Overview
The family of this 372-nucleotide sequence from Alkalispirochaeta americana is "Bacterial RNase P class A". A search with the family's covariance model found it, with a score of 265 bits. Taxonomically the source falls in Alkalispirochaeta (Bacteria, Spirochaetia, Spirochaetales, Spirochaetaceae). Rfam classes the family as a ribozyme. Ribonuclease P (RNase P) is a ubiquitous endoribonuclease, found in archaea, bacteria and eukarya as well as chloroplasts and mitochondria.
RNA sequence: UGGAGAGGCCAGGUCAUCGCCCGGCUGUCUGUGACAGCCGGGAGGAAAGUCCGGACUCCGGAGAGCACGGCACCGGGUAAUUCCCGGCGGCCGCCAGGGUUUCCCUGGCGACAAGAGAAAGUGCCACAGAAACAAGACCGCCCCGGUUUGGUCCGAGUGAUCUAUCGGGGUAAGGGUGAAACGGUGGGGUAAGAGCCUACCGGUCUUCCGGUAACGGGAGGCGUCAUGGUAAACCUUGCCGGGAGCAAAACCAAGCAGCGGGUGGGCUGCUCGUCCAGAGCCCGCGGGUAGGUUGCUGGAGCAGGCUGGAGAUAGUCUGUGUAGAUAGAUGGUGACCCACGACAGAAUCCGGCUUACCGGCCUCUCUGCACG
Numbered sequence: 001u002g003g004a005g006a007g008g009c010c011a012g013g014u015c016a017u018c019g020c021c022c023g024g025c026u027g028u029c030u031g032u033g034a035c036a037g038c039c040g041g042g043a044g045g046a047a048a049g050u051c052c053g054g055a056c057u058c059c060g061g062a063g064a065g066c067a068c069g070g071c072a073c074c075g076g077g078u079a080a081u082u083c084c085c086g087g088c089g090g091c092c093g094c095c096a097g098g099g100u101u102u103c104c105c106u107g108g109c110g111a112c113a114a115g116a117g118a119a120a121g122u123g124c125c126a127c128a129g130a131a132a133c134a135a136g137a138c139c140g141c142c143c144c145g146g147u148u149u150g151g152u153c154c155g156a157g158u159g160a161u162c163u164a165u166c167g168g169g170g171u172a173a174g175g176g177u178g179a180a181a182c183g184g185u186g187g188g189g190u191a192a193g194a195g196c197c198u199a200c201c202g203g204u205c206u207u208c209c210g211g212u213a214a215c216g217g218g219a220g221g222c223g224u225c226a227u228g229g230u231a232a233a234c235c236u237u238g239c240c241g242g243g244a245g246c247a248a249a250a251c252c253a254a255g256c257a258g259c260g261g262g263u264g265g266g267c268u269g270c271u272c273g274u275c276c277a278g279a280g281c282c283c284g285c286g287g288g289u290a291g292g293u294u295g296c297u298g299g300a301g302c303a304g305g306c307u308g309g310a311g312a313u314a315g316u317c318u319g320u321g322u323a324g325a326u327a328g329a330u331g332g333u334g335a336c337c338c339a340c341g342a343c344a345g346a347a348u349c350c351g352g353c354u355u356a357c358c359g360g361c362c363u364c365u366c367u368g369c370a371c372g
Stems, first nucleotide, its partner, number of pairs: 001368010012337007020042009047355003051352005056245004063272004068241005073087005088115001090112001092110008116236002121234002123230003138175002140171008183201006202225001203222008249294004258285005263277005301320008